[Rfam]
RNA: Guanidine-I riboswitch aptamer
RNA sequence: CAGAAGGAUUUCUAGGGUUCCGUAAACAAAUUUGUUUAGACUGGUCCGAGAGAAAUCCCGCAUCAAUUUGAUGUGCCACGGAAGGACAAAAGCCUGGGAGUU
Numbered sequence: 001c002a003g004a005a006g007g008a009u010u011u012c013u014a015g016g017g018u019u020c021c022g023u024a025a026a027c028a029a030a031u032u033u034g035u036u037u038a039g040a041c042u043g044g045u046c047c048g049a050g051a052g053a054a055a056u057c058c059c060g061c062a063u064c065a066a067u068u069u070g071a072u073g074u075g076c077c078a079c080g081g082a083a084g085g086a087c088a089a090a091a092g093c094c095u096g097g098g099a100g101u102u
Stems, first nucleotide, its partner, number of pairs: 007057006015047002020044002022041001023038006059075007077097001079100001083095003
Dot-bracket structure: ......((((((..((...(((((((((....))))))..).)).))....)))))).(((((((...))))))).(.[...(((.......))).)..]..